Record summary: Shown here is a 74-nucleotide RNA sequence from Camphora micrantha, a member of the family "Small nucleolar RNA R160". On this family, see Chen et al., Nucleic Acids Res 2003: "The high diversity of snoRNAs in plants: identification and comparative study of 120 snoRNA genes from Oryza sativa". The family's RNA type in Rfam is C/D-box small nucleolar RNA. The match comes from Rfam's covariance-model search (62 bits). NCBI's taxonomy places the organism under Eukaryota, Tracheophyta, Spermatophyta, Lauraceae, Camphora.
RNA sequence: AGCAAAAUGAGGAGCCAAUAUGUUCUGAAUAUUAUGUUGAAAUGCUUAAUGAUCUUCAAAGUUUUCUGCUUGCU
Numbered sequence: 001a002g003c004a005a006a007a008u009g010a011g012g013a014g015c016c017a018a019u020a021u022g023u024u025c026u027g028a029a030u031a032u033u034a035u036g037u038u039g040a041a042a043u044g045c046u047u048a049a050u051g052a053u054c055u056u057c058a059a060a061g062u063u064u065u066c067u068g069c070u071u072g073c074u
Base pairs, nucleotide, nucleotide: 001074002073003072004071005070